[Rfam]
RNA sequence: CAGAGGUGCCUUGCCGAUCGUGCGUGGUGGAAGCGUAGGAACUCCUAUCAUCGCAGGUCAGCAGGCACCUCUUCCUAUUUCCCCGUCCACAGACAGCACGUCACACGGUGGAUCAAG
Numbered sequence: 001c002a003g004a005g006g007u008g009c010c011u012u013g014c015c016g017a018u019c020g021u022g023c024g025u026g027g028u029g030g031a032a033g034c035g036u037a038g039g040a041a042c043u044c045c046u047a048u049c050a051u052c053g054c055a056g057g058u059c060a061g062c063a064g065g066c067a068c069c070u071c072u073u074c075c076u077a078u079u080u081c082c083c084c085g086u087c088c089a090c091a092g093a094c095a096g097c098a099c100g101u102c103a104c105a106c107g108g109u110g111g112a113u114c115a116a117g
Stems, first nucleotide, its partner, number of pairs: 002072010016059002019056001021055004025050004030045001032043002100113003103109001
RNA: Actinobacteria sRNA Ms_IGR-7
Organism: Streptomyces sp. NRRL F-5122